[Rfam]
RNA sequence: UAAUUAGAUUUCCUCGGCAGUUAACUGCAGCCGGAUUUCUAAAACAUCGGCAGUUAACUGCCGAGGGG
Numbered sequence: 001u002a003a004u005u006a007g008a009u010u011u012c013c014u015c016g017g018c019a020g021u022u023a024a025c026u027g028c029a030g031c032c033g034g035a036u037u038u039c040u041a042a043a044a045c046a047u048c049g050g051c052a053g054u055u056a057a058c059u060g061c062c063g064a065g066g067g068g
Stems, first nucleotide, its partner, number of pairs: 011067002014064015
Notes:
The record is a 68-nucleotide RNA from Medicago truncatula, which matches "MIR2629 microRNA precursor family" in Rfam. A search with the family's covariance model found it, with a score of 62 bits. The base pairs follow the family's consensus structure, which was predicted with RNAalifold.